Overview
A member of the RNA family "Mycobacterium sRNA Ms_AS-1" from Frankia nepalensis, 104 nucleotides long.
[Rfam]
RNA sequence: GUCGGGUUCGGGAUGAAGCGGUUGAUCUUCCCGGCGAUCACGAUGUAAGCGCGCUUGCCGUCCUGGAGGACCUGCACGCCCCGACGCUUCAUCUUGGGGUCCUG
Dot-bracket structure: .....(.(((...((..(.((....)).)..)).))).)....(((....)))........................(((((((.........)))))))....

The family's RNA type in Rfam is small RNA.